[Rfam]
RNA sequence: CAUGAAUCUAACAGAAACAUUUCUGCACAAACUAAAUUUCUGAAACCAGUAUGUGGAAAUGCUUCUGCUACAUUUUUU
Numbered sequence: 001c002a003u004g005a006a007u008c009u010a011a012c013a014g015a016a017a018c019a020u021u022u023c024u025g026c027a028c029a030a031a032c033u034a035a036a037u038u039u040c041u042g043a044a045a046c047c048a049g050u051a052u053g054u055g056g057a058a059a060u061g062c063u064u065c066u067g068c069u070a071c072a073u074u075u076u077u078u
Stems, first nucleotide, its partner, number of pairs: 002077001004075004009070002012067005018061010029050001032049002
mir-147 microRNA precursor family: a 78-nucleotide sequence from Sarcophilus harrisii. The family's consensus secondary structure was predicted with RNAalifold. Gene Ontology terms of the family: RISC complex and miRNA-mediated post-transcriptional gene silencing. Taxonomically the source falls in Sarcophilus (Eukaryota, Metazoa, Tetrapoda, Metatheria).